Rfam assigns this 82-nucleotide RNA to the family "Small nucleolar RNA Z168/Z174". On this family, see Chen et al., Nucleic Acids Res 2003: "The high diversity of snoRNAs in plants: identification and comparative study of 120 snoRNA genes from Oryza sativa".

[Rfam]
RNA sequence: GGGCCGAUGAUGUGAACCAUGCUCCUACGGUCUAAACCUGUGGGGAGGAUUUCCAAACCAUAUUUCCCAAGAGCUGAGGCCU
Numbered sequence: 001g002g003g004c005c006g007a008u009g010a011u012g013u014g015a016a017c018c019a020u021g022c023u024c025c026u027a028c029g030g031u032c033u034a035a036a037c038c039u040g041u042g043g044g045g046a047g048g049a050u051u052u053c054c055a056a057a058c059c060a061u062a063u064u065u066c067c068c069a070a071g072a073g074c075u076g077a078g079g080c081c082u
Base pairs, nucleotide, nucleotide: 002081003080004079005078
Record summary: Pairs were carried over by alignment from the consensus structure, which was predicted with PFOLD.